Background
The family of this 289-nucleotide sequence from Halteria grandinella is "Nuclear RNase P". Pairs were carried over by alignment from the consensus structure, which is taken from published work. It is annotated as a ribozyme. Ribonuclease P (RNase P) is a ubiquitous endoribonuclease, found in archaea, bacteria and eukarya as well as chloroplasts and mitochondria. It scores 96 bits against the family's covariance model. Its family is annotated with ribonuclease P activity, tRNA processing and ribonuclease P complex in the Gene Ontology. Lineage of the source: Eukaryota > Alveolata > Ciliophora > Sporadotrichida > Halteria.

RNA sequence: UUGAGAGAAAGCGCGCUCGUAUAUGCGGACACACGAGAGCCUCGAGAGCUCUGGCACCAAUCGCAUAUGGGAAGGUCUGAGGCGCCUCUCAGCAUAAGAGAUCAAAAGGAGGAGACUCCUGGACAAGCUAACAGAAAACAACUCGUGCACUGACCGCCGAAGAGGCCCCUCGUGAGAGGGGAAGAGGCUAUGGGCAGGGUGCGAGAUGAGAAGCUUGGCGGCGUUGAGUUUCAGUUCAAUGAGCACGACCCUGCAAAGGGCAACUCAAUUCAGACUACUCUUCUUUCAA
Numbered sequence: 001u002u003g004a005g006a007g008a009a010a011g012c013g014c015g016c017u018c019g020u021a022u023a024u025g026c027g028g029a030c031a032c033a034c035g036a037g038a039g040c041c042u043c044g045a046g047a048g049c050u051c052u053g054g055c056a057c058c059a060a061u062c063g064c065a066u067a068u069g070g071g072a073a074g075g076u077c078u079g080a081g082g083c084g085c086c087u088c089u090c091a092g093c094a095u096a097a098g099a100g101a102u103c104a105a106a107a108g109g110a111g112g113a114g115a116c117u118c119c120u121g122g123a124c125a126a127g128c129u130a131a132c133a134g135a136a137a138a139c140a141a142c143u144c145g146u147g148c149a150c151u152g153a154c155c156g157c158c159g160a161a162g163a164g165g166c167c168c169c170u171c172g173u174g175a176g177a178g179g180g181g182a183a184g185a186g187g188c189u190a191u192g193g194g195c196a197g198g199g200u201g202c203g204a205g206a207u208g209a210g211a212a213g214c215u216u217g218g219c220g221g222c223g224u225u226g227a228g229u230u231u232c233a234g235u236u237c238a239a240u241g242a243g244c245a246c247g248a249c250c251c252u253g254c255a256a257a258g259g260g261c262a263a264c265u266c267a268a269u270u271c272a273g274a275c276u277a278c279u280c281u282u283c284u285u286u287c288a289a
Stems, first nucleotide, its partner, number of pairs: 001289004007283003012247002015244004021068005036052005041046001077273005083223004107120005122219001124217005142205003249260004